This 169-nucleotide RNA sequence from Campylobacter sp. MIT 12-5580 belongs to the Rfam family "Bacterial antisense RNA HPnc0260". It scores 66 bits against the family's covariance model. Taxonomically the source falls in Campylobacter (Bacteria, Pseudomonadati, Campylobacterota, Epsilonproteobacteria).
[Rfam]
RNA sequence: AGUGCUAAAAAUUUUCUUAAGUAUUCAAAAGAUACAAAAAUUCGUGCCAUAGCAAGUAAAAUCAUAAAAGAUCAAGAAAAAGAAAUAUUAGAAUUUAAAGCUUUAUUAAAAACUCUUCACUGAGCUUAAAUGGUGGCUCCGAUUGGACUUGAACCAACGACCACCACCA
Numbered sequence: 001a002g003u004g005c006u007a008a009a010a011a012u013u014u015u016c017u018u019a020a021g022u023a024u025u026c027a028a029a030a031g032a033u034a035c036a037a038a039a040a041u042u043c044g045u046g047c048c049a050u051a052g053c054a055a056g057u058a059a060a061a062u063c064a065u066a067a068a069a070g071a072u073c074a075a076g077a078a079a080a081a082g083a084a085a086u087a088u089u090a091g092a093a094u095u096u097a098a099a100g101c102u103u104u105a106u107u108a109a110a111a112a113c114u115c116u117u118c119a120c121u122g123a124g125c126u127u128a129a130a131u132g133g134u135g136g137c138u139c140c141g142a143u144u145g146g147a148c149u150u151g152a153a154c155c156a157a158c159g160a161c162c163a164c165c166a167c168c169a
Base pairs, nucleotide, nucleotide: 026046030042031041033039065076131166132165133164134163135162136161140159141158143157144156145155146154
Dot-bracket structure: .........................(...((.(.....).))...)..................(..........)......................................................((((((...((.((((.......)))))).))))))...